A member of the RNA family "Molybdenum/Tungsten riboswitch aptamer (Moco RNA motif)" from Vibrio xiamenensis, 139 nucleotides long. Lineage of the source: Bacteria > Pseudomonadota > Gammaproteobacteria > Vibrionales > Vibrio. A reference for the family is Weinberg et al. (2007), "Identification of 22 candidate structured RNAs in bacteria using the CMfinder comparative genomics pipeline", Nucleic Acids Res. The match comes from Rfam's covariance-model search (94 bits).
[Rfam]
RNA sequence: UGGUUGCCAUAACUCCGAGCUUAUUUUGCUAAGUUGAAUUAUCGAUAUGCGUGAUAAGCCAGUGACAUUUGGUCACAAGGGCUACAUUGGAAAUGAUGUAUGCCUCCCGUGUUUGGAAAGGUGUUCCGUGGCGCAACAA
Numbered sequence: 001u002g003g004u005u006g007c008c009a010u011a012a013c014u015c016c017g018a019g020c021u022u023a024u025u026u027u028g029c030u031a032a033g034u035u036g037a038a039u040u041a042u043c044g045a046u047a048u049g050c051g052u053g054a055u056a057a058g059c060c061a062g063u064g065a066c067a068u069u070u071g072g073u074c075a076c077a078a079g080g081g082c083u084a085c086a087u088u089g090g091a092a093a094u095g096a097u098g099u100a101u102g103c104c105u106c107c108c109g110u111g112u113u114u115g116g117a118a119a120g121g122u123g124u125u126c127c128g129u130g131g132c133g134c135a136a137c138a139a
Base pairs, nucleotide, nucleotide: 011125012124013123015121016120019059020058021057022056023055024054025053027051028050029049033046034045035044036043062076063075064074065073066072079105080104081103082102083100084099085098086097087096088095089094106116107115